A member of the RNA family "glycine-GGAnGA riboswitch aptamer" from Desulfosporosinus sp. Sb-LF, 194 nucleotides long. Clan: Glycine riboswitch clan. Rfam describes the family as follows. glycine-GGAnGA riboswitch is a variant of glycine riboswitch that have in common a U69A change. This riboswitch is associate with genes that encode either saccharopine dehydrogenase or amino acid transporters and other genes with not predicted function. The literature on the family includes a 2017 paper in Proc Natl Acad Sci U S A by Weinberg et al., "Bioinformatic analysis of riboswitch structures uncovers variant classes with altered ligand specificity".
RNA sequence: UCGGAUGAUUCUAGUGGGAGAGAGCUGGGAGAACCAGUCGCCGAAGGAGAAAAUCCCUUGAAAUCGCUUUUCAGGGGGGGAAACUCUCAGGCAAACGUACUGCUAGAUGACGAUACUCUGGAGAGUUUCUCUUUAUAGAGAACACCAAAGGGGAAGCCGGAGACGGCGAAUCUCUCAGGUUCAAGGACAGAGGA
Numbered sequence: 001u002c003g004g005a006u007g008a009u010u011c012u013a014g015u016g017g018g019a020g021a022g023a024g025c026u027g028g029g030a031g032a033a034c035c036a037g038u039c040g041c042c043g044a045a046g047g048a049g050a051a052a053a054u055c056c057c058u059u060g061a062a063a064u065c066g067c068u069u070u071u072c073a074g075g076g077g078g079g080g081a082a083a084c085u086c087u088c089a090g091g092c093a094a095a096c097g098u099a100c101u102g103c104u105a106g107a108u109g110a111c112g113a114u115a116c117u118c119u120g121g122a123g124a125g126u127u128u129c130u131c132u133u134u135a136u137a138g139a140g141a142a143c144a145c146c147a148a149a150g151g152g153g154a155a156g157c158c159g160g161a162g163a164c165g166g167c168g169a170a171u172c173u174c175u176c177a178g179g180u181u182c183a184a185g186g187a188c189a190g191a192g193g194a
Stems, first nucleotide, its partner, number of pairs: 001113003010107008022039001024038004040092003046088001047086003054078010116192005125143001127142004144180003150176001152173003